[Rfam]
RNA sequence: CAGUGGGUGAGAGUCCCAUCGUUGUAAAAGCCAAAUCAACGUAGCUGAAAGGAGUGUGCUAAUGGAAACAUAGUAUACUAAGCCCUUUGACAAACCAGGGAUCUGCCCUGGGAGCAAAGAUGCAGGCCGCAGGUAA
Numbered sequence: 001c002a003g004u005g006g007g008u009g010a011g012a013g014u015c016c017c018a019u020c021g022u023u024g025u026a027a028a029a030g031c032c033a034a035a036u037c038a039a040c041g042u043a044g045c046u047g048a049a050a051g052g053a054g055u056g057u058g059c060u061a062a063u064g065g066a067a068a069c070a071u072a073g074u075a076u077a078c079u080a081a082g083c084c085c086u087u088u089g090a091c092a093a094a095c096c097a098g099g100g101a102u103c104u105g106c107c108c109u110g111g112g113a114g115c116a117a118a119g120a121u122g123c124a125g126g127c128c129g130c131a132g133g134u135a136a
Stems, first nucleotide, its partner, number of pairs: 020041005048088005053079006063070002095111006114130002